Rfam assigns this 84-nucleotide RNA from Branchiostoma belcheri to the family "mir-2060 microRNA precursor family". The match comes from Rfam's covariance-model search (77 bits). Taxonomically the source falls in Branchiostoma (Eukaryota, Opisthokonta, Bilateria, Deuterostomia).
[Rfam]
RNA sequence: GUGUGUGUGGAUGGUGUUCAGCACCAGGGACAGGUAUGUCUGUGUGUGGAUGGUGUUCAGCACCAGGGACAGGUAUGUCUGUUU
Numbered sequence: 001g002u003g004u005g006u007g008u009g010g011a012u013g014g015u016g017u018u019c020a021g022c023a024c025c026a027g028g029g030a031c032a033g034g035u036a037u038g039u040c041u042g043u044g045u046g047u048g049g050a051u052g053g054u055g056u057u058c059a060g061c062a063c064c065a066g067g068g069a070c071a072g073g074u075a076u077g078u079c080u081g082u083u084u
Base pairs, nucleotide, nucleotide: 002071003070004069012065013064014063015062016061017060018059020057021056022055023054024053025052026051028045030043031042032041033040034039

Gene Ontology terms of the family: miRNA-mediated post-transcriptional gene silencing and RISC complex.